The family of this 165-nucleotide sequence from Neophocaena asiaeorientalis is "U1 spliceosomal RNA".
For this family Rfam cites "The uRNA database" (Zwieb, Nucleic Acids Res, 1997).
Its family is annotated with U1 snRNP, pre-mRNA 5'-splice site binding and mRNA 5'-splice site recognition in the Gene Ontology.
RNA sequence: AUACUUACCUGGCAGGGGAGAUACCAUGAUCAUUAAGGUGGUUUUCCCAGGUCGAGGCUCAACUCAUUGCACUGUGAGUGUGCUGACGCCUGCGAUUUCUCCAAAUGGGAGAAACUCGACUGCAUAAUUUGUGGUAGUGGGGGACUGCGUGCGCGCUUUCCCCCA
Numbered sequence: 001a002u003a004c005u006u007a008c009c010u011g012g013c014a015g016g017g018g019a020g021a022u023a024c025c026a027u028g029a030u031c032a033u034u035a036a037g038g039u040g041g042u043u044u045u046c047c048c049a050g051g052u053c054g055a056g057g058c059u060c061a062a063c064u065c066a067u068u069g070c071a072c073u074g075u076g077a078g079u080g081u082g083c084u085g086a087c088g089c090c091u092g093c094g095a096u097u098u099c100u101c102c103a104a105a106u107g108g109g110a111g112a113a114a115c116u117c118g119a120c121u122g123c124a125u126a127a128u129u130u131g132u133g134g135u136a137g138u139g140g141g142g143g144a145c146u147g148c149g150u151g152c153g154c155g156c157u158u159u160c161c162c163c164c165a
Stems, first nucleotide, its partner, number of pairs: 012123004016048006023042005049091004054087001056084003060080002063078003093118003096114001097112002100110002139164006147156003